[Rfam]
The record is a 309-nucleotide RNA sequence from Gossypium stocksii, which matches "Plant signal recognition particle RNA" in Rfam. It is annotated as a non-coding RNA gene. Pairs were carried over by alignment from the consensus structure, which is taken from published work. The source organism's lineage runs through Eukaryota, Euphyllophyta, eudicotyledons, malvids and Gossypium.
RNA sequence: GCCGAGUUUGGUAACAUGAUCUUGUAACCUGAGUAGGGGCUUUAAGGUGAUGGAAUGCGAGUUUGGCUUUACUGAGUUGGAUCUCGGGUGGUUCAAAUCUGGCUUGCCCGUUCCAAGUUGAGAGGUGAGCCAAGGGACCAGAGUGUGAACUCUGAGUCUCGUGGUUCCUAAAGUGGAGGGUACUGCGUGAGGCUGGUUUUCACAGAGCAGCGAAGACCUCUCUCUCUUGACAGUGGAAGGAUAACAAGCUUGAUCCACUCCGAAUCCAACAUGGCUCAGCGAGCUAACCCUGACUAGACCAUCUUUUUU
Numbered sequence: 001g002c003c004g005a006g007u008u009u010g011g012u013a014a015c016a017u018g019a020u021c022u023u024g025u026a027a028c029c030u031g032a033g034u035a036g037g038g039g040c041u042u043u044a045a046g047g048u049g050a051u052g053g054a055a056u057g058c059g060a061g062u063u064u065g066g067c068u069u070u071a072c073u074g075a076g077u078u079g080g081a082u083c084u085c086g087g088g089u090g091g092u093u094c095a096a097a098u099c100u101g102g103c104u105u106g107c108c109c110g111u112u113c114c115a116a117g118u119u120g121a122g123a124g125g126u127g128a129g130c131c132a133a134g135g136g137a138c139c140a141g142a143g144u145g146u147g148a149a150c151u152c153u154g155a156g157u158c159u160c161g162u163g164g165u166u167c168c169u170a171a172a173g174u175g176g177a178g179g180g181u182a183c184u185g186c187g188u189g190a191g192g193c194u195g196g197u198u199u200u201c202a203c204a205g206a207g208c209a210g211c212g213a214a215g216a217c218c219u220c221u222c223u224c225u226c227u228u229g230a231c232a233g234u235g236g237a238a239g240g241a242u243a244a245c246a247a248g249c250u251u252g253a254u255c256c257a258c259u260c261c262g263a264a265u266c267c268a269a270c271a272u273g274g275c276u277c278a279g280c281g282a283g284c285u286a287a288c289c290c291u292g293a294c295u296a297g298a299c300c301a302u303c304u305u306u307u308u309u
Base pairs, nucleotide, nucleotide: 001040002039003038004023005022006021008019009018010017028037029036030035044308045307046306047305049303050302051301052300053299056296057295060291061290063287064286065285066284067283069282070281072279073278074277075276076275077274078273079267080266081265082264084262086260089257090256091255099252101250102249103248104247105246106245108240109239111238112237113236114235115234117231118230119229120228121227122226123225124224125223127167128166129165130164131163132162134160135159136158137157138156139154140153141152142151143150144149168173175221176220177219178218179217184214186212187211188210193205194204195203